The record is a 142-nucleotide RNA sequence from Mus musculus, which matches "Small nucleolar RNA SNORA48" in Rfam.

Nucleotides: 142
Stems, first nucleotide, its partner, number of pairs: 003061001005059001008056001012053003018047003022041002025038003083136004097130003102126003107121002110118001
Number, partner (000 for none) and nucleotide at each position: 001000c002000u003061c004000c005059c006000a007000g008056g009000c010000a011000a012053u013052g014051a015000g016000c017000a018047a019046a020045g021000a022041g023040a024000c025038a026037c027036c028000u029000u030000g031000u032000u033000g034000g035000u036027g037026g038025u039000a040023u041022u042000g043000u044000u045020c046019u047018u048000a049000u050000a051014u052013c053012a054000g055000u056008c057000a058000a059005g060000a061003g062000c063000a064000g065000a066000g067000c068000a069000g070000a071000u072000g073000a074000c075000u076000g077000u078000c079000c080000u081000u082000u083136g084135u085134u086133c087000a088000u089000c090000c091000u092000a093000g094000c095000u096000u097130g098129g099128u100000c101000c102126u103125g104124g105000c106000u107121u108120g109000g110118u111000g112000a113000c114000c115000a116000a117000a118110a119000c120108u121107g122000u123000c124104u125103u126102a127000u128099g129098c130097c131000u132000a133086g134085g135084a136083c137000c138000c139000a140000u141000c142000a
The base pairs follow the family's consensus structure, which was predicted with RNAalifold. Lineage of the source: Eukaryota > Chordata > Teleostomi > Dipnotetrapodomorpha > Mus. Rfam links the family to the GO terms nucleolus and RNA processing. For this family Rfam cites "Mapping to nucleotide resolution of pseudouridine residues in large subunit ribosomal RNAs from representative eukaryotes, prokaryotes, archaebacteria, mitochondria and chloroplasts" (Ofengand and Bakin, J Mol Biol, 1997). From the family's description: The snoRNA ACA 48 has been identified to guide pseudouridylation of the residue U3797 in the 28S rRNA subunit.